OmrA-B family: an 89-nucleotide RNA from Edwardsiella hoshinae. The source organism's lineage runs through Bacteria, Pseudomonadota, Gammaproteobacteria, Enterobacterales and Edwardsiella. A reference for the family is Argaman et al. (2001), "Novel small RNA-encoding genes in the intergenic regions of Escherichia coli", Curr Biol. By type it is a small RNA. Pairs were carried over by alignment from the consensus structure, which was predicted with WAR.

RNA sequence: CCCAGAGGUAUUGAUUGGUGAGAGUUCAGUUUUCAGUUGCUGAAGCCAACAAAAUUACACCGACCUACGCGGAUGCGUAGGUUUUUUUU
Numbered sequence: 001c002c003c004a005g006a007g008g009u010a011u012u013g014a015u016u017g018g019u020g021a022g023a024g025u026u027c028a029g030u031u032u033u034c035a036g037u038u039g040c041u042g043a044a045g046c047c048a049a050c051a052a053a054a055u056u057a058c059a060c061c062g063a064c065c066u067a068c069g070c071g072g073a074u075g076c077g078u079a080g081g082u083u084u085u086u087u088u089u
Stems, first nucleotide, its partner, number of pairs: 016062005029046005063082008